The record is a 154-nucleotide RNA sequence from Populus tomentosa, which matches "MIR2912 microRNA precursor family" in Rfam.
RNA sequence: UCUAGAACUCGACAUAUGGGCUGAACACUGAAUAGUGUCUGGGCUACAAGACAGAUUCGGACUUCUUUGUUUUUGCUAUAAUUUGGAUUUGAAAACGGCCUUUCUAAAUCUUGGGCUCCCAUGAAAGUUGUAGACUAUGUCUUACCUUUCCAUC
Numbered sequence: 001u002c003u004a005g006a007a008c009u010c011g012a013c014a015u016a017u018g019g020g021c022u023g024a025a026c027a028c029u030g031a032a033u034a035g036u037g038u039c040u041g042g043g044c045u046a047c048a049a050g051a052c053a054g055a056u057u058c059g060g061a062c063u064u065c066u067u068u069g070u071u072u073u074u075g076c077u078a079u080a081a082u083u084u085g086g087a088u089u090u091g092a093a094a095a096c097g098g099c100c101u102u103u104c105u106a107a108a109u110c111u112u113g114g115g116c117u118c119c120c121a122u123g124a125a126a127g128u129u130g131u132a133g134a135c136u137a138u139g140u141c142u143u144a145c146c147u148u149u150c151c152a153u154c
Base pairs, nucleotide, nucleotide: 003152005150006149007148009144011143012142014140015139016138017137018136019135021133022132023131025129027128028127029126035122036121037120041119042118043117045115048112049111050110051109054105059100060099062098063097068092073087074086
Notes
It scores 99 bits against the family's covariance model. The base pairs follow the family's consensus structure, which was predicted with RNAalifold. Its family is annotated with RISC complex and miRNA-mediated post-transcriptional gene silencing in the Gene Ontology. The organism belongs to Populus, within Eukaryota.